[Rfam]
RNA sequence: CGCAGAACUAUGUACCACGCACAUCACUUAGAUGGGUUCCAGAAUGCAUUGCUUUGA
Numbered sequence: 001c002g003c004a005g006a007a008c009u010a011u012g013u014a015c016c017a018c019g020c021a022c023a024u025c026a027c028u029u030a031g032a033u034g035g036g037u038u039c040c041a042g043a044a045u046g047c048a049u050u051g052c053u054u055u056g057a
Stems, first nucleotide, its partner, number of pairs: 019037002022034004

A member of the RNA family "Plastid-ndhJ 3UTR RNA" from Ziziphus jujuba, 57 nucleotides long.
By type it is a cis-regulatory element.
It scores 48 bits against the family's covariance model.
Plastid ndhJ is a non-coding RNA (ncRNA) present in plastids. It was identified as a short stem-loop motif in the 3 prime untranslate region (3UTR) of ndhJ gene.
A reference for the family is Richter et al. (2023), "Retrograde signaling in plants: A critical review focusing on the GUN pathway and beyond", Plant Commun.
The family has 50 seed sequences and 869 matches in Rfam 15.1.